Shown here is a 563-nucleotide RNA from Xylaria grammica, a member of the family "RNase MRP". For this family Rfam cites "Secondary structure of RNase MRP RNA as predicted by phylogenetic comparison" (Schmitt et al., FASEB J, 1993). By type it is a ribozyme.

RNA sequence: CCCUCGCCCAACAGAUCGCUAUCGAAGCUACACACAGAGACCGCGAUCCUCGUGGUCUCACUAUCCAGCUUUGGGAGAAAGUCCCCGGACGGCUCUUUCGCUUUUCUCUCGGGAAAGGUCGCAAAGAUGACAGCGGAAACGCACCGCCAUAGAAGCACAGCGGUUUACCUUCACCUUGCGUUCGUUUUCCCGUAACACCAGCGUGCUUCGCAUCCACCCCUCCUACCCGGCUUUGCUGUAAGAAAAUCUAUUCUGCCCACCCGGGCGGUGCCUGACGUCGGUGGUUCUGUUCCAUCUCUCGCCGGCCAUGAGGUCCCCCAUGGACGAAGAUAUGAGUCCGCGGCUUCAUGGCUUGGGAGCUUGGGCGUUCUCUGGCGUCGCCGUGCCCGCUUGGCGGUAGUUUGGAUGGCAGGAUCUCACCGUGGAUCGGACAUUCUGGGUGGGUUAACAUCAUGGGCGCGGGUAGAACACCUUUUGUCGAGAUCGAUAGUUAUGCGAUUGCCUAGCUUUGCUCGCUCGUCGAGCGGCUUGGUUACUCGAUGGGGCUUAUUCUUGGUGCGAGG
Numbered sequence: 001c002c003c004u005c006g007c008c009c010a011a012c013a014g015a016u017c018g019c020u021a022u023c024g025a026a027g028c029u030a031c032a033c034a035c036a037g038a039g040a041c042c043g044c045g046a047u048c049c050u051c052g053u054g055g056u057c058u059c060a061c062u063a064u065c066c067a068g069c070u071u072u073g074g075g076a077g078a079a080a081g082u083c084c085c086c087g088g089a090c091g092g093c094u095c096u097u098u099c100g101c102u103u104u105u106c107u108c109u110c111g112g113g114a115a116a117g118g119u120c121g122c123a124a125a126g127a128u129g130a131c132a133g134c135g136g137a138a139a140c141g142c143a144c145c146g147c148c149a150u151a152g153a154a155g156c157a158c159a160g161c162g163g164u165u166u167a168c169c170u171u172c173a174c175c176u177u178g179c180g181u182u183c184g185u186u187u188u189c190c191c192g193u194a195a196c197a198c199c200a201g202c203g204u205g206c207u208u209c210g211c212a213u214c215c216a217c218c219c220c221u222c223c224u225a226c227c228c229g230g231c232u233u234u235g236c237u238g239u240a241a242g243a244a245a246a247u248c249u250a251u252u253c254u255g256c257c258c259a260c261c262c263g264g265g266c267g268g269u270g271c272c273u274g275a276c277g278u279c280g281g282u283g284g285u286u287c288u289g290u291u292c293c294a295u296c297u298c299u300c301g302c303c304g305g306c307c308a309u310g311a312g313g314u315c316c317c318c319c320a321u322g323g324a325c326g327a328a329g330a331u332a333u334g335a336g337u338c339c340g341c342g343g344c345u346u347c348a349u350g351g352c353u354u355g356g357g358a359g360c361u362u363g364g365g366c367g368u369u370c371u372c373u374g375g376c377g378u379c380g381c382c383g384u385g386c387c388c389g390c391u392u393g394g395c396g397g398u399a400g401u402u403u404g405g406a407u408g409g410c411a412g413g414a415u416c417u418c419a420c421c422g423u424g425g426a427u428c429g430g431a432c433a434u435u436c437u438g439g440g441u442g443g444g445u446u447a448a449c450a451u452c453a454u455g456g457g458c459g460c461g462g463g464u465a466g467a468a469c470a471c472c473u474u475u476u477g478u479c480g481a482g483a484u485c486g487a488u489a490g491u492u493a494u495g496c497g498a499u500u501g502c503c504u505a506g507c508u509u510u511g512c513u514c515g516c517u518c519g520u521c522g523a524g525c526g527g528c529u530u531g532g533u534u535a536c537u538c539g540a541u542g543g544g545g546c547u548u549a550u551u552c553u554u555g556g557u558g559c560g561a562g563g
Base pairs, nucleotide, nucleotide: 002563003562004561005560006559007558008556009555010554011553014500015499016498017497018496019495022075023073024072025071026070027069028068037059038058039057040056041055042054043053044052045051046050079548080547081546083545084544085543086542255266256265257264258263374472375471381462382461383460384459385458386457390456391455400449401448502532503531505529506528507527